flg-Rhizobiales RNA: a 132-nucleotide RNA from Rhodoplanes sp.
A search with the family's covariance model found it, with a score of 57 bits.
The source organism's lineage runs through Bacteria, Pseudomonadati, Pseudomonadota, Alphaproteobacteria and Rhodoplanes.

[Rfam]
Nucleotides: 132
Base pairs, nucleotide, nucleotide: 001032002031005028006027007026009024010023011022012021013020014019036069037068038067039066040065047058048057049056050055084109085108086107087106088105090104092102093101
Number, partner (000 for none) and nucleotide at each position: 001032c002031g003000g004000a005028g006027c007026g008000u009024c010023g011022g012021u013020u014019u015000g016000g017000g018000a019014g020013a021012g022011c023010c024009g025000c026007c027006g028005c029000g030000a031002c032001g033000g034000a035000u036069g037068c038067c039066g040065g041000a042000g043000c044000g045000c046000c047058g048057c049056u050055u051000g052000g053000g054000a055050g056049a057048g058047c059000a060000u061000c062000g063000c064000g065040c066039c067038g068037g069036u070000c071000g072000a073000g074000g075000g076000g077000a078000g079000a080000g081000a082000g083000a084109u085108c086107g087106a088105u089000g090104g091000c092102g093101a094000a095000c096000g097000c098000a099000g100000c101093u102092c103000u104090c105088g106087u107086c108085g109084g110000g111000c112000u113000g114000u115000c116000g117000g118000c119000c120000c121000a122000g123000a124000u125000g126000g127000c128000g129000u130000u131000g132000c